RNA: c-di-AMP riboswitch aptamer (ydaO/yuaA leader)
RNA sequence: AGCGAAGAAAAGCCGAAUCCAGCUCAGGAGCGGGGGAACCAUAGUUUUUGGGGUGAAUGAUGAGGCGGCAGAAGGACGGCAGGGAUAAGGCUGCUUUCCGGCCGCGUCAAAAAGGGUGUUCUCUUCCCUAACCCGGCAGCUAACCUCGUAGGCGAAAUCAGAGAGGGAGU
Number, nucleotide and partner (000 for none) at each position: 001a000002g000003c000004g000005a000006a000007g000008a000009a000010a000011a000012g153013c152014c151015g000016a000017a000018u029019c028020c027021a000022g000023c000024u000025c000026a000027g020028g019029a018030g149031c148032g147033g146034g145035g144036g000037a000038a000039c000040c050041a049042u000043a000044g000045u000046u000047u000048u000049u041050g040051g134052g133053g132054u000055g000056a000057a000058u000059g000060a000061u000062g000063a000064g000065g000066c000067g000068g000069c000070a000071g000072a000073a000074g000075g000076a000077c000078g000079g000080c000081a000082g000083g000084g000085a000086u000087a000088a000089g000090g000091c000092u000093g000094c000095u000096u000097u000098c000099c000100g000101g000102c000103c000104g000105c000106g000107u000108c000109a000110a000111a000112a000113a000114g128115g127116g126117u000118g000119u000120u000121c000122u000123c000124u000125u000126c116127c115128c114129u000130a000131a000132c053133c052134c051135g000136g000137c000138a000139g000140c000141u000142a000143a000144c035145c034146u033147c032148g031149u030150a000151g014152g013153c012154g000155a000156a000157a000158u000159c000160a000161g000162a000163g000164a000165g000166g000167g000168a000169g000170u000